About this RNA
Rfam assigns this 57-nucleotide RNA from Planomonospora parontospora to the family "L17-Actino-Proteobacteria ribosomal protein leader". A reference for the family is Eckert and Weinberg (2020), "Discovery of 20 novel ribosomal leader candidates in bacteria and archaea", BMC Microbiol. The family's consensus secondary structure is taken from published work.

RNA sequence: CGGGAGCCGCGAGCGGUUCCCGUGGCCCGACCCCGGUACCUGACACGGCCGGGGCGG
Dot-bracket structure: ((((((((......))))))))....(((.(((((((..........))))))))))